[Rfam]
RNA: nhaA-I RNA
Organism: Allobosea sp. WAO
RNA sequence: GGGUGCUCCGCCGCGAUCGUGCGGCGGGCAGGUUUUUUGCGCUGGUCGGGCCGCCAGUG
Numbered sequence: 001g002g003g004u005g006c007u008c009c010g011c012c013g014c015g016a017u018c019g020u021g022c023g024g025c026g027g028g029c030a031g032g033u034u035u036u037u038u039g040c041g042c043u044g045g046u047c048g049g050g051c052c053g054c055c056a057g058u059g
Stems, first nucleotide, its partner, number of pairs: 005029002008027007040059007